[Rfam]
RNA sequence: AGUAGAGUAGAUGUUAUGCGUUAAGUGUCACAGGAGGGGAAGACUUCCUGCGAACGAAGGUUCAAGCCGCGUUAUGAUAUCGCUUCCGCUACU
Numbered sequence: 001a002g003u004a005g006a007g008u009a010g011a012u013g014u015u016a017u018g019c020g021u022u023a024a025g026u027g028u029c030a031c032a033g034g035a036g037g038g039g040a041a042g043a044c045u046u047c048c049u050g051c052g053a054a055c056g057a058a059g060g061u062u063c064a065a066g067c068c069g070c071g072u073u074a075u076g077a078u079a080u081c082g083c084u085u086c087c088g089c090u091a092c093u
Stems, first nucleotide, its partner, number of pairs: 001093005010081009019071003025055002028053002031050005038087005059068003
Dot-bracket structure: (((((....((((((((((((...((.((.(((((..[[[[[...))))).))))...(((....)))))).))))))))).]]]]].)))))

Shown here is a 93-nucleotide RNA sequence from Blautia sp. OF03-15BH, a member of the family "THF (Tetrahydrofolate) riboswitch aptamer".
A search with the family's covariance model found it, with a score of 64 bits.
Tetrahydrofolate (THF) riboswitch was first reported for Ames et al. as an RNA motif in 5' untranslated (5'-UTR)regions of folate transport and biosynthesis genes in Firmicutes genomes.